A member of the RNA family "mir-87 microRNA precursor family" from Darwinula stevensoni, 74 nucleotides long. Gene Ontology terms of the family: RISC complex and miRNA-mediated post-transcriptional gene silencing.

[Rfam]
RNA sequence: CUUGAGCCGGCCUGUCGCUUUGCUCAACCUGGGUUUUGAGGACGAGGUGAGCAAAGUUUCAGGUGUGUUCAAGG
Numbered sequence: 001c002u003u004g005a006g007c008c009g010g011c012c013u014g015u016c017g018c019u020u021u022g023c024u025c026a027a028c029c030u031g032g033g034u035u036u037u038g039a040g041g042a043c044g045a046g047g048u049g050a051g052c053a054a055a056g057u058u059u060c061a062g063g064u065g066u067g068u069u070c071a072a073g074g
Stems, first nucleotide, its partner, number of pairs: 002072006010064005017057005023051004028047003
Annotation
Taxonomically the source falls in Darwinula (Eukaryota, Protostomia, Panarthropoda, Pancrustacea). The match comes from Rfam's covariance-model search (64 bits). The base pairs follow the family's consensus structure, which was predicted with RNAalifold. The literature on the family includes a 2003 paper in Dev Biol by Sempere et al., "Temporal regulation of microRNA expression in Drosophila melanogaster mediated by hormonal signals and broad-Complex gene activity".